[Rfam]
RNA sequence: AUACUGUCAAGAUAGUUUUCCCAGGGCGAGGCUCCCCCAUUGCACGGCGGGUGUGUGCUGACCCCUGCGAUUUCCCCACAUGCGGGAAACUCGACUGCGUAAUUUGUGGUAGUGGGGGACUGCGUGCGCGCUCUCCCCUG
Number, nucleotide and partner (000 for none) at each position: 001a017002u000003a016004c015005u014006g013007u012008c000009a000010a000011g000012a007013u006014a005015g004016u003017u001018u000019u000020c000021c000022c000023a066024g065025g064026g063027c000028g062029a000030g059031g058032c057033u000034c055035c000036c053037c051038c050039a000040u000041u000042g000043c000044a000045c000046g000047g000048c000049g000050g038051g037052u000053g036054u000055g034056u000057g032058c031059u030060g000061a000062c028063c026064c025065c024066u023067g000068c093069g092070a091071u089072u088073u087074c000075c085076c084077c000078a000079c000080a000081u000082g000083c000084g076085g075086g000087a073088a072089a071090c000091u070092c069093g068094a000095c000096u000097g000098c000099g000100u000101a000102a000103u000104u000105u000106g000107u000108g000109g000110u000111a000112g000113u000114g139115g138116g137117g136118g135119a134120c000121u000122g131123c130124g129125u000126g000127c000128g000129c124130g123131c122132u000133c000134u119135c118136c117137c116138c115139u114140g000